Shown here is a 98-nucleotide RNA sequence from Chlorocebus sabaeus, a member of the family "mir-544 microRNA precursor family".
RNA sequence: AUCACCUGGGGAUCUUGUUAAAAGGCAGACUAUGAUUUGGUAGAUUUGGGGUGGGGCCUGAGAUUCUUCAUUUCUAUCAAGCUCCCAGAUGAUGCUGA
Numbered sequence: 001a002u003c004a005c006c007u008g009g010g011g012a013u014c015u016u017g018u019u020a021a022a023a024g025g026c027a028g029a030c031u032a033u034g035a036u037u038u039g040g041u042a043g044a045u046u047u048g049g050g051g052u053g054g055g056g057c058c059u060g061a062g063a064u065u066c067u068u069c070a071u072u073u074c075u076a077u078c079a080a081g082c083u084c085c086c087a088g089a090u091g092a093u094g095c096u097g098a
Stems, first nucleotide, its partner, number of pairs: 003091002009085003014081004019076002021073003025069001027067003031063001033061001
Annotation
The family's consensus secondary structure was predicted with RNAalifold.